[Rfam]
RNA: ALIL pseudoknot
Organism: Neomicrococcus aestuarii
RNA sequence: AGCGUCUUUUUUCGCGGCGGAGCUCGACCGCCCACGAGGUUGAUCGUGAAAUUCAUUGAUCAGUUUCGGGAUCGCUAUGGGGUCAAGCCGAUCUGCACGGUGCUCACGCGUCAUGCUGGUGUGAAGAUCGCCCCG
Numbered sequence: 001a002g003c004g005u006c007u008u009u010u011u012u013c014g015c016g017g018c019g020g021a022g023c024u025c026g027a028c029c030g031c032c033c034a035c036g037a038g039g040u041u042g043a044u045c046g047u048g049a050a051a052u053u054c055a056u057u058g059a060u061c062a063g064u065u066u067c068g069g070g071a072u073c074g075c076u077a078u079g080g081g082g083u084c085a086a087g088c089c090g091a092u093c094u095g096c097a098c099g100g101u102g103c104u105c106a107c108g109c110g111u112c113a114u115g116c117u118g119g120u121g122u123g124a125a126g127a128u129c130g131c132c133c134c135g
Stems, first nucleotide, its partner, number of pairs: 016032005078135005089130002092127003096123003